[Rfam]
RNA sequence: UGGAUCAUAAAUUUGCUCAAUGCUCUCUGGAGCUUCUGUGUUACCACGUUGGAGAGAGUGUUGAUUUGGACUCCCUGAUAGGGCUUAGGCAUCUUUCAGCCCUUGCUUCGGGUUUUCGUCCUUAUUGGCCUCCCUCAUUGGGCCUCAGAAGCUUCACAGAACAUUGACUUGAUUUGUGACCCU
Numbered sequence: 001u002g003g004a005u006c007a008u009a010a011a012u013u014u015g016c017u018c019a020a021u022g023c024u025c026u027c028u029g030g031a032g033c034u035u036c037u038g039u040g041u042u043a044c045c046a047c048g049u050u051g052g053a054g055a056g057a058g059u060g061u062u063g064a065u066u067u068g069g070a071c072u073c074c075c076u077g078a079u080a081g082g083g084c085u086u087a088g089g090c091a092u093c094u095u096u097c098a099g100c101c102c103u104u105g106c107u108u109c110g111g112g113u114u115u116u117c118g119u120c121c122u123u124a125u126u127g128g129c130c131u132c133c134c135u136c137a138u139u140g141g142g143c144c145u146c147a148g149a150a151g152c153u154u155c156a157c158a159g160a161a162c163a164u165u166g167a168c169u170u171g172a173u174u175u176g177u178g179a180c181c182c183u
Stems, first nucleotide, its partner, number of pairs: 002182002005179009017167006024160003028156011040144001044142002067118003079105004084099002087095003